[Rfam]
Shown here is a 35-nucleotide RNA sequence, a member of the family "DUF805b RNA". The family's RNA type in Rfam is cis-regulatory element. The sequence is in the family's curated seed alignment.
RNA sequence: UUAGGGAAAGCCCAAAACCUAUAAAAGAGUAGGCA
Numbered sequence: 001u002u003a004g005g006g007a008a009a010g011c012c013c014a015a016a017a018c019c020u021a022u023a024a025a026a027g028a029g030u031a032g033g034c035a
Base pairs, nucleotide, nucleotide: 002021003020004019005018010034011033012032